[Rfam]
RNA sequence: UUGGUUAGAACUCAACACAGGUUGACGCCACAACGGCGCCAACACCUUGGCUCGUCACGCCGGCAACGAGCCACCAACGGCAGAAUGAUUCUGCCCCGGCCUCAACAGAGGCCGACGCGAAGUAACAGUCAAC
Numbered sequence: 001u002u003g004g005u006u007a008g009a010a011c012u013c014a015a016c017a018c019a020g021g022u023u024g025a026c027g028c029c030a031c032a033a034c035g036g037c038g039c040c041a042a043c044a045c046c047u048u049g050g051c052u053c054g055u056c057a058c059g060c061c062g063g064c065a066a067c068g069a070g071c072c073a074c075c076a077a078c079g080g081c082a083g084a085a086u087g088a089u090u091c092u093g094c095c096c097c098g099g100c101c102u103c104a105a106c107a108g109a110g111g112c113c114g115a116c117g118c119g120a121a122g123u124a125a126c127a128g129u130c131a132a133c
Base pairs, nucleotide, nucleotide: 021043022042023041024040026038027037028036029035049072050071051070052069053068054067055066079095080094081093082092083091084090098113099112100111101110102109103108
A member of the RNA family "rmf RNA" from Pseudomonas corrugata, 133 nucleotides long. It scores 115 bits against the family's covariance model.